[Rfam]
RNA sequence: CGGGCUAUAGCGCAGUUUGGUAGCGCGCCUGCUUUGGGAGCAGGAUGUCGCCGGUUCAAAUCCGGCUAGCCCGA
Numbered sequence: 001c002g003g004g005c006u007a008u009a010g011c012g013c014a015g016u017u018u019g020g021u022a023g024c025g026c027g028c029c030u031g032c033u034u035u036g037g038g039a040g041c042a043g044g045a046u047g048u049c050g051c052c053g054g055u056u057c058a059a060a061u062c063c064g065g066c067u068a069g070c071c072c073g074a
Stems, first nucleotide, its partner, number of pairs: 001073007010026004028044005050066005
Dot-bracket structure: (((((((..((((.........)))).(((((.......))))).....(((((.......)))))))))))).

This 74-nucleotide RNA from Bifidobacterium reuteri belongs to the Rfam family "tRNA". The family's consensus secondary structure is taken from published work. NCBI's taxonomy places the organism under Bacteria, Actinomycetota, Actinomycetes, Bifidobacteriaceae, Bifidobacterium reuteri. It scores 71 bits against the family's covariance model. A reference for the family is Lowe and Eddy (1997), "tRNAscan-SE: a program for improved detection of transfer RNA genes in genomic sequence", Nucleic Acids Res. Rfam classes the family as a transfer RNA. Transfer RNA (tRNA) molecules are approximately 80 nucleotides in length.